[Rfam]
RNA sequence: UACGACGGGCAGUCGCUGUCGCCCGGUAAAGACCGGGGCGGUAGAGGAAAGUCGAGACACGCACUCCGGGCGCUCUGGAGGCGCUAUGGUGUAGUACGGUGCCCGGCGCAAGCCGGGGCAGGGCGACCUGACGACGGCAAAAGAAACCCACCGGGUUUCGAGUAGCCAUAAAGUGCCACAGAAACGAGGUCAUCGGGUAACCGAUGAGUGCAAGGGUAAACUCCACCAGCGUGCAACCCAAAUAGGCAGCCUUUGAGCUGCGGGUAGGGGCACCCCCGUGAGGGGGAGGCGAACCUUUAUGGUUGGCCUAGAUAGAUGACUGCUAAAACAGAAUCUCGCUUACGGUC
Numbered sequence: 001u002a003c004g005a006c007g008g009g010c011a012g013u014c015g016c017u018g019u020c021g022c023c024c025g026g027u028a029a030a031g032a033c034c035g036g037g038g039c040g041g042u043a044g045a046g047g048a049a050a051g052u053c054g055a056g057a058c059a060c061g062c063a064c065u066c067c068g069g070g071c072g073c074u075c076u077g078g079a080g081g082c083g084c085u086a087u088g089g090u091g092u093a094g095u096a097c098g099g100u101g102c103c104c105g106g107c108g109c110a111a112g113c114c115g116g117g118g119c120a121g122g123g124c125g126a127c128c129u130g131a132c133g134a135c136g137g138c139a140a141a142a143g144a145a146a147c148c149c150a151c152c153g154g155g156u157u158u159c160g161a162g163u164a165g166c167c168a169u170a171a172a173g174u175g176c177c178a179c180a181g182a183a184a185c186g187a188g189g190u191c192a193u194c195g196g197g198u199a200a201c202c203g204a205u206g207a208g209u210g211c212a213a214g215g216g217u218a219a220a221c222u223c224c225a226c227c228a229g230c231g232u233g234c235a236a237c238c239c240a241a242a243u244a245g246g247c248a249g250c251c252u253u254u255g256a257g258c259u260g261c262g263g264g265u266a267g268g269g270g271c272a273c274c275c276c277c278g279u280g281a282g283g284g285g286g287a288g289g290c291g292a293a294c295c296u297u298u299a300u301g302g303u304u305g306g307c308c309u310a311g312a313u314a315g316a317u318g319a320c321u322g323c324u325a326a327a328a329c330a331g332a333a334u335c336u337c338g339c340u341u342a343c344g345g346u347c
Stems, first nucleotide, its partner, number of pairs: 004347003007343001008324007016044009049341003053338005058233005063092002066089002098227004102117006118132001119130004133223002136167003143159007173221002175217003190207007237269003273286005287309004292304004
A member of the RNA family "Bacterial RNase P class B" from Desulfoscipio geothermicus, 347 nucleotides long.
It scores 132 bits against the family's covariance model.